[Rfam]
RNA sequence: GCCACUCUGAAAAGAGAUCUCGAACAGUGUUCGACGGUCCGCCCACGGUGAAAGUCGCUGCCACGCAGCGUCGAAGCUCUCAGGCACAGAUGACAGAGGGGGAGUU
Numbered sequence: 001g002c003c004a005c006u007c008u009g010a011a012a013a014g015a016g017a018u019c020u021c022g023a024a025c026a027g028u029g030u031u032c033g034a035c036g037g038u039c040c041g042c043c044c045a046c047g048g049u050g051a052a053a054g055u056c057g058c059u060g061c062c063a064c065g066c067a068g069c070g071u072c073g074a075a076g077c078u079c080u081c082a083g084g085c086a087c088a089g090a091u092g093a094c095a096g097a098g099g100g101g102g103a104g105u106u
Stems, first nucleotide, its partner, number of pairs: 002101002005098005016039004041085003045080001048079001050077001054072001
Shown here is a 106-nucleotide RNA sequence from Agreia sp. Leaf210, a member of the family "Glycine riboswitch aptamer". Taxonomically the source falls in Agreia (Bacteria, Bacillati, Actinomycetes, Microbacteriaceae). Gene Ontology term of the family: glycine biosynthetic process.